[Rfam]
RNA sequence: UAAUUUAUUUGAGUCAGAUUUCAUUUGUCUAUGAUAGACCCAUAUAUGACUGCUCAGAAUCGUCUGUUAUUGUAAGUCUGACUAUAUCAUUAAUAUUAAAAAACAAAAAACAACUACUAUGUAAAUAAUAA
Numbered sequence: 001u002a003a004u005u006u007a008u009u010u011g012a013g014u015c016a017g018a019u020u021u022c023a024u025u026u027g028u029c030u031a032u033g034a035u036a037g038a039c040c041c042a043u044a045u046a047u048g049a050c051u052g053c054u055c056a057g058a059a060u061c062g063u064c065u066g067u068u069a070u071u072g073u074a075a076g077u078c079u080g081a082c083u084a085u086a087u088c089a090u091u092a093a094u095a096u097u098a099a100a101a102a103a104c105a106a107a108a109a110a111c112a113a114c115u116a117c118u119a120u121g122u123a124a125a126u127a128a129u130a131a
Base pairs, nucleotide, nucleotide: 005128006127007126008124009123011122013120014119016118017117025113026112027111028110030109
Source information: MIR480 microRNA precursor family: a 131-nucleotide sequence from Populus trichocarpa. A reference for the family is Lu et al. (2005), "Novel and mechanical stress-responsive MicroRNAs in Populus trichocarpa that are absent from Arabidopsis", Plant Cell. Lineage of the source: Eukaryota > Euphyllophyta > rosids > Salicaceae > Populus.